[Rfam]
RNA: Lysine riboswitch aptamer
Organism: Ureibacillus sinduriensis
RNA sequence: UUGUGAGGUAGAGGCGCGAUACUUAAUAGUUUUUCAUGGAGUUAAGAGCAAAACGAUGAUAUGAAAAAUGAGGAAAUGUCGCCGAAGUGUGAAUGUAGGCUCUCUACAUCAUGCUGGGUCUGCAGUGAAUAAUUGCAGGACUGUCUCAGAUGGAGAUCCCAACCAUCUGAGGUGAGCUAUCUCAGGA
Numbered sequence: 001u002u003g004u005g006a007g008g009u010a011g012a013g014g015c016g017c018g019a020u021a022c023u024u025a026a027u028a029g030u031u032u033u034u035c036a037u038g039g040a041g042u043u044a045a046g047a048g049c050a051a052a053a054c055g056a057u058g059a060u061a062u063g064a065a066a067a068a069u070g071a072g073g074a075a076a077u078g079u080c081g082c083c084g085a086a087g088u089g090u091g092a093a094u095g096u097a098g099g100c101u102c103u104c105u106a107c108a109u110c111a112u113g114c115u116g117g118g119u120c121u122g123c124a125g126u127g128a129a130u131a132a133u134u135g136c137a138g139g140a141c142u143g144u145c146u147c148a149g150a151u152g153g154a155g156a157u158c159c160c161a162a163c164c165a166u167c168u169g170a171g172g173u174g175a176g177c178u179a180u181c182u183c184a185g186g187a
Stems, first nucleotide, its partner, number of pairs: 006182006016082006023075002031067008086115007094108005116142002119139008144172010